[Rfam]
RNA sequence: GAGUGAUAUGAUGGCAUACCAUCUUUCGGGACUGACUCUUGUGAUGAUUUUCUUGUAUCUUACUGAUCACUU
Numbered sequence: 001g002a003g004u005g006a007u008a009u010g011a012u013g014g015c016a017u018a019c020c021a022u023c024u025u026u027c028g029g030g031a032c033u034g035a036c037u038c039u040u041g042u043g044a045u046g047a048u049u050u051u052c053u054u055g056u057a058u059c060u061u062a063c064u065g066a067u068c069a070c071u072u
Base pairs, nucleotide, nucleotide: 001072002071003070004069005068006067
Dot-bracket structure: ((((((............................................................))))))